[Rfam]
mir-23 microRNA precursor family: a 74-nucleotide RNA from Coregonus sp. 'balchen'. Its family is annotated with RISC complex and gene silencing by miRNA in the Gene Ontology. Lineage of the source: Eukaryota > Eumetazoa > Deuterostomia > Coregoninae > Coregonus. The literature on the family includes a 2002 paper in Curr Biol by Lagos-Quintana et al., "Identification of tissue-specific microRNAs from mouse". It scores 60 bits against the family's covariance model.
RNA sequence: GGCUGUGAGGGUCUCUGGCAUGCUGAUUUGUGACUGAAGAUGAAAAUCACAUUGCCAGGGAUUACCACAAUGCC
Numbered sequence: 001g002g003c004u005g006u007g008a009g010g011g012u013c014u015c016u017g018g019c020a021u022g023c024u025g026a027u028u029u030g031u032g033a034c035u036g037a038a039g040a041u042g043a044a045a046a047u048c049a050c051a052u053u054g055c056c057a058g059g060g061a062u063u064a065c066c067a068c069a070a071u072g073c074c
Stems, first nucleotide, its partner, number of pairs: 001074002006069001009066002011062010021051002024049006